RNA: mir-9256 microRNA precursor family
Organism: Cnephaeus nilssonii
RNA sequence: GAUUACAAUGAGUGGCCAGAUUAUUAUGAUUUCUGAGCGCAUAAUAAUCUGGCCACUCAGUGUAUUU
Numbered sequence: 001g002a003u004u005a006c007a008a009u010g011a012g013u014g015g016c017c018a019g020a021u022u023a024u025u026a027u028g029a030u031u032u033c034u035g036a037g038c039g040c041a042u043a044a045u046a047a048u049c050u051g052g053c054c055a056c057u058c059a060g061u062g063u064a065u066u067u
Stems, first nucleotide, its partner, number of pairs: 004064004009059009019049010